The family of this 195-nucleotide sequence from Miscanthus lutarioriparius is "MIR1435 microRNA precursor family".
NCBI's taxonomy places the organism under Eukaryota, Streptophytina, Poaceae, Saccharinae, Miscanthus.
RNA sequence: UAGCUCUGUCCUAAGUCAAACUUACUUUCACUGACUUUUUAGAAAAAUAUAUUAACAUCUACAAGUUCAAAUACAUGUACUAUCAAGAUAUAUUUCAUGGAGCAUUUGAUGAAACUAAUUUGAUAUUGUAGAUGUUGAUGCAUUUUUCUAUAAACUUGGACAAAGUUAGAGAAGUUUGACUUAGGACAAAGCUAA
Numbered sequence: 001u002a003g004c005u006c007u008g009u010c011c012u013a014a015g016u017c018a019a020a021c022u023u024a025c026u027u028u029c030a031c032u033g034a035c036u037u038u039u040u041a042g043a044a045a046a047a048u049a050u051a052u053u054a055a056c057a058u059c060u061a062c063a064a065g066u067u068c069a070a071a072u073a074c075a076u077g078u079a080c081u082a083u084c085a086a087g088a089u090a091u092a093u094u095u096c097a098u099g100g101a102g103c104a105u106u107u108g109a110u111g112a113a114a115c116u117a118a119u120u121u122g123a124u125a126u127u128g129u130a131g132a133u134g135u136u137g138a139u140g141c142a143u144u145u146u147u148c149u150a151u152a153a154a155c156u157u158g159g160a161c162a163a164a165g166u167u168a169g170a171g172a173a174g175u176u177u178g179a180c181u182u183a184g185g186a187c188a189a190a191g192c193u194a195a
Stems, first nucleotide, its partner, number of pairs: 005190001007188003011184013025171002028163001040150008050140003054136010067123006